Rfam assigns this 63-nucleotide sequence from Microvirga mediterraneensis to the family "terC RNA".
The organism belongs to Microvirga, within Bacteria.
The family's RNA type in Rfam is cis-regulatory element.
A search with the family's covariance model found it, with a score of 51 bits.
Pairs were carried over by alignment from the consensus structure, which is taken from published work.
[Rfam]
RNA sequence: ACCCCGAUCCGGGCCCCUCUGACGCGAGCCGUGCCGGCCUUUGCGUGAUGUCGGAUCUUUUCC
Number, nucleotide and partner (000 for none) at each position: 001a000002c000003c000004c000005c000006g057007a056008u055009c054010c053011g052012g051013g000014c000015c000016c000017c000018u000019c000020u000021g000022a046023c045024g044025c043026g042027a041028g040029c000030c000031g000032u000033g000034c000035c000036g000037g000038c000039c000040u028041u027042u026043g025044c024045g023046u022047g000048a000049u000050g000051u012052c011053g010054g009055a008056u007057c006058u000059u000060u000061u000062c000063c000